The record is a 99-nucleotide sequence from Rhipicephalus sanguineus, which matches "mir-25 microRNA precursor family" in Rfam.
The base pairs follow the family's consensus structure, which was predicted with RNAalifold.
[Rfam]
RNA sequence: UACGAGCGCUAUGGGACGGGGACAUAGACAAGAGGUACACAGGACAGGCGCUCUGUCCUGUGUACCUCUUGUCUAUGUCCCCGUCCCAUAGCGCUCGUA
Numbered sequence: 001u002a003c004g005a006g007c008g009c010u011a012u013g014g015g016a017c018g019g020g021g022a023c024a025u026a027g028a029c030a031a032g033a034g035g036u037a038c039a040c041a042g043g044a045c046a047g048g049c050g051c052u053c054u055g056u057c058c059u060g061u062g063u064a065c066c067u068c069u070u071g072u073c074u075a076u077g078u079c080c081c082c083g084u085c086c087c088a089u090a091g092c093g094c095u096c097g098u099a
Base pairs, nucleotide, nucleotide: 001099002098003097004096006094007093008092009091014086015085016084017083019081020080021079022078023077028072029071030070031069032068034067035066